[Rfam]
RNA sequence: CGGCUUCUGCGCGACUGGCGAUGGGGCUUCGUCUGCGAAGCCUGAGGUGGUGAACCACCGGGGAGCGCAGACGGUGUGGCAGGCAGUUCGUCGACGCAUCGUUUCCGCCGUUCGCCUGGGCAGCCUGU
Numbered sequence: 001c002g003g004c005u006u007c008u009g010c011g012c013g014a015c016u017g018g019c020g021a022u023g024g025g026g027c028u029u030c031g032u033c034u035g036c037g038a039a040g041c042c043u044g045a046g047g048u049g050g051u052g053a054a055c056c057a058c059c060g061g062g063g064a065g066c067g068c069a070g071a072c073g074g075u076g077u078g079g080c081a082g083g084c085a086g087u088u089c090g091u092c093g094a095c096g097c098a099u100c101g102u103u104u105c106c107g108c109c110g111u112u113c114g115c116c117u118g119g120g121c122a123g124c125c126u127g128u
Stems, first nucleotide, its partner, number of pairs: 004073001006071007015062002017116005047058004105123001107121003

Overview:
The record is a 128-nucleotide sequence from Rhizobacter terrae, which matches "ZMP/ZTP riboswitch aptamer (pfl RNA motif)" in Rfam. A reference for the family is Ren et al. (2015), "Global RNA Fold and Molecular Recognition for a pfl Riboswitch Bound to ZMP, a Master Regulator of One-Carbon Metabolism", Structure.